[Rfam]
Nucleotides: 161
Base pairs, nucleotide, nucleotide: 015070016069017068018067019066027057028056029055030054031053032052033051034050035049036048091154092153093152094151095150097148098147108140109139110138111137112136113135115134116133117132118131121128122127
Number, partner (000 for none) and nucleotide at each position: 001000a002000a003000a004000c005000a006000a007000a008000a009000a010000a011000u012000u013000a014000a015070c016069c017068a018067g019066u020000a021000u022000c023000a024000u025000u026000g027057g028056c029055u030054g031053c032052c033051u034050g035049u036048a037000g038000a039000u040000c041000a042000c043000c044000a045000a046000c047000a048036u049035a050034c051033g052032g053031g054030c055029g056028g057027u058000c059000c060000c061000u062000c063000u064000a065000a066019g067018c068017u069016g070015g071000a072000a073000g074000a075000a076000g077000a078000a079000a080000c081000c082000u083000u084000u085000c086000u087000u088000a089000u090000u091154a092153g093152a094151a095150c096000a097148g098147c099000c100000u101000a102000a103000g104000u105000u106000c107000u108140g109139u110138c111137g112136u113135g114000c115134g116133a117132a118131c119000c120000a121128g122127u123000c124000c125000c126000a127122a128121c129000a130000c131118g132117u133116u134115c135113c136112a137111u138110g139109a140108c141000a142000c143000u144000a145000a146000u147098g148097u149000c150095g151094u152093u153092c154091u155000a156000a157000c158000a159000a160000u161000a